The family of this 85-nucleotide RNA from Streptomyces spinoverrucosus is "ZMP/ZTP riboswitch aptamer (pfl RNA motif)".
RNA sequence: GUCCGGGGCCGUGACUGGCGCUGAGGUGGAGUACCACCGGGGAGCGGUCCACGCAGAGUCGAUGCCGCGCGCCUGGGCGAUCCGC
Numbered sequence: 001g002u003c004c005g006g007g008g009c010c011g012u013g014a015c016u017g018g019c020g021c022u023g024a025g026g027u028g029g030a031g032u033a034c035c036a037c038c039g040g041g042g043a044g045c046g047g048u049c050c051a052c053g054c055a056g057a058g059u060c061g062a063u064g065c066c067g068c069g070c071g072c073c074u075g076g077g078c079g080a081u082c083c084g085c
Base pairs, nucleotide, nucleotide: 003053006050007049008048009047010046011045012044015041016040017073018072019071020070021069026037027036028035029034063079064078065077066076
Notes
Lineage of the source: Bacteria > Bacillati > Actinomycetota > Streptomycetaceae > Streptomyces. The base pairs follow the family's consensus structure, which is taken from published work.